Shown here is a 79-nucleotide RNA from Capra hircus, a member of the family "mir-3432 microRNA precursor family".
NCBI's taxonomy places the organism under Eukaryota, Eumetazoa, Vertebrata, Gnathostomata, Capra.
The family has 4 seed sequences and 21 matches in Rfam 15.1.
Pairs were carried over by alignment from the consensus structure, which was predicted with RNAalifold.

RNA sequence: GUUGCGGCAUGCGGGAUCUUUAGUUGUGGCGUGUGCAUUCUUAGUUGCAGCAACUAAAGAUCCCUCAGGCUGCAGUGAA
Numbered sequence: 001g002u003u004g005c006g007g008c009a010u011g012c013g014g015g016a017u018c019u020u021u022a023g024u025u026g027u028g029g030c031g032u033g034u035g036c037a038u039u040c041u042u043a044g045u046u047g048c049a050g051c052a053a054c055u056a057a058a059g060a061u062c063c064c065u066c067a068g069g070c071u072g073c074a075g076u077g078a079a
Stems, first nucleotide, its partner, number of pairs: 001076008014063005020057003025052003032049004